[Rfam]
The family of this 62-nucleotide RNA sequence from Bacillus sp. FJAT-50079 is "Bacillaceae-1 RNA". The match comes from Rfam's covariance-model search (53 bits).

RNA sequence: CUUUAGGGAUCGUCGACGUCGCCACGUCCUGUGGCACCGUCGACGCACCAACAUCCUGUUGG
Numbered sequence: 001c002u003u004u005a006g007g008g009a010u011c012g013u014c015g016a017c018g019u020c021g022c023c024a025c026g027u028c029c030u031g032u033g034g035c036a037c038c039g040u041c042g043a044c045g046c047a048c049c050a051a052c053a054u055c056c057u058g059u060u061g062g
Stems, first nucleotide, its partner, number of pairs: 011045007021035005048062005